[Rfam]
Shown here is a 100-nucleotide RNA from Sphingobium cloacae, a member of the family "Repression of heat shock gene expression (ROSE) element". Its family is annotated with regulation of translation and response to temperature stimulus in the Gene Ontology. The source organism's lineage runs through Bacteria, Pseudomonadota, Alphaproteobacteria, Sphingobiaceae and Sphingobium. The family's RNA type in Rfam is RNA thermoregulator. A reference for the family is Nocker et al. (2001), "A mRNA-based thermosensor controls expression of rhizobial heat shock genes", Nucleic Acids Res.
RNA sequence: CCGGACGCCGUUCGGGUCCGGUGGACAUAGAGGGCGUCGGCUCUCCGUUUCCGACGCUUCUCAUGCCCAGAUUGCUCACAGGAGGAUUUGGAGAUGAGAA
Numbered sequence: 001c002c003g004g005a006c007g008c009c010g011u012u013c014g015g016g017u018c019c020g021g022u023g024g025a026c027a028u029a030g031a032g033g034g035c036g037u038c039g040g041c042u043c044u045c046c047g048u049u050u051c052c053g054a055c056g057c058u059u060c061u062c063a064u065g066c067c068c069a070g071a072u073u074g075c076u077c078a079c080a081g082g083a084g085g086a087u088u089u090g091g092a093g094a095u096g097a098g099a100a
Base pairs, nucleotide, nucleotide: 001021002020003019004018005017006016008015009014032059033058034057035056036055037054038053039052040051060098061097062096063095064094067091068090069089070088071087072086073085075084076083077082